[Rfam]
RNA sequence: ACGGCGACAACGCUCUUUCGUGAGCGUUAAACAGAUGAGUCCGCGACCAUGGGUUGCCAUAAAAUUGAUCGCUGCUGGCGUAAUGUGCUCAGCCGCCAUGAUCA
Numbered sequence: 001a002c003g004g005c006g007a008c009a010a011c012g013c014u015c016u017u018u019c020g021u022g023a024g025c026g027u028u029a030a031a032c033a034g035a036u037g038a039g040u041c042c043g044c045g046a047c048c049a050u051g052g053g054u055u056g057c058c059a060u061a062a063a064a065u066u067g068a069u070c071g072c073u074g075c076u077g078g079c080g081u082a083a084u085g086u087g088c089u090c091a092g093c094c095g096c097c098a099u100g101a102u103c104a
Stems, first nucleotide, its partner, number of pairs: 003058006009028007035050003039047003066104005071096002074093004078088003

Rfam assigns this 104-nucleotide sequence from Vibrio cholerae to the family "Vibrio RNA AS9". The literature on the family includes a 2009 paper in Nucleic Acids Res by Liu et al., "Experimental discovery of sRNAs in Vibrio cholerae by direct cloning, 5S/tRNA depletion and parallel sequencing". Rfam's curators write: Identified by direct cloning an parallel sequencing experiments with 5S/tRNA depletion. By type it is an antisense RNA.